This 235-nucleotide RNA from Pelotomaculum propionicicum belongs to the Rfam family "c-di-AMP riboswitch aptamer (ydaO/yuaA leader)". Rfam links the family to the GO terms cyclic-di-AMP binding and regulation of gene expression.
[Rfam]
RNA sequence: AUCAAAAAAAAGCCGAAUCCUAAAAUCACUUAGGUACGGAGGGCCCAAUUUCAGGGGUGAAUCCAUUUGGUCGUUUGUCGUUGGACGUUGGUCGUUGGGCUGCUUGUUGGAAUUCGCUUUAGCGAAUUCCUUCUAUCCACCAACCACUAACCACCAACCACCAACCACCCAAACGGUAGGGUUGUCUUUUACCGAACCCGUCAGCUAACUCCGGAGGCUAAAAAAGAAAGGGGAA
Numbered sequence: 001a002u003c004a005a006a007a008a009a010a011a012g013c014c015g016a017a018u019c020c021u022a023a024a025a026u027c028a029c030u031u032a033g034g035u036a037c038g039g040a041g042g043g044c045c046c047a048a049u050u051u052c053a054g055g056g057g058u059g060a061a062u063c064c065a066u067u068u069g070g071u072c073g074u075u076u077g078u079c080g081u082u083g084g085a086c087g088u089u090g091g092u093c094g095u096u097g098g099g100c101u102g103c104u105u106g107u108u109g110g111a112a113u114u115c116g117c118u119u120u121a122g123c124g125a126a127u128u129c130c131u132u133c134u135a136u137c138c139a140c141c142a143a144c145c146a147c148u149a150a151c152c153a154c155c156a157a158c159c160a161c162c163a164a165c166c167a168c169c170c171a172a173a174c175g176g177u178a179g180g181g182u183u184g185u186c187u188u189u190u191a192c193c194g195a196a197c198c199c200g201u202c203a204g205c206u207a208a209c210u211c212c213g214g215a216g217g218c219u220a221a222a223a224a225a226g227a228a229a230g231g232g233g234a235a
Stems, first nucleotide, its partner, number of pairs: 011219004019034005037213005046054001055199003063176002066173005179193002182191001